The record is a 99-nucleotide RNA sequence from Actinocatenispora rupis, which matches "Glycine riboswitch aptamer" in Rfam. It scores 63 bits against the family's covariance model. Taxonomically the source falls in Actinocatenispora (Bacteria, Bacillati, Actinomycetes, Micromonosporales). Rfam's curators write: This family represents the bacterial glycine riboswitch. The base pairs follow the family's consensus structure.
RNA sequence: ACGACCUGCGUGGGAGAGACCGUCCGGCCGUACGGUCGGGGGCGCCGAAGGGGCAACUCCUCCCCGGAACCUCUCAGGCAAAAGGACCGCGUGGGUAGG
Numbered sequence: 001a002c003g004a005c006c007u008g009c010g011u012g013g014g015a016g017a018g019a020c021c022g023u024c025c026g027g028c029c030g031u032a033c034g035g036u037c038g039g040g041g042g043c044g045c046c047g048a049a050g051g052g053g054c055a056a057c058u059c060c061u062c063c064c065c066g067g068a069a070c071c072u073c074u075c076a077g078g079c080a081a082a083a084g085g086a087c088c089g090c091g092u093g094g095g096u097a098g099g
Stems, first nucleotide, its partner, number of pairs: 006094008020042002023039001044079003047075002051073003057067002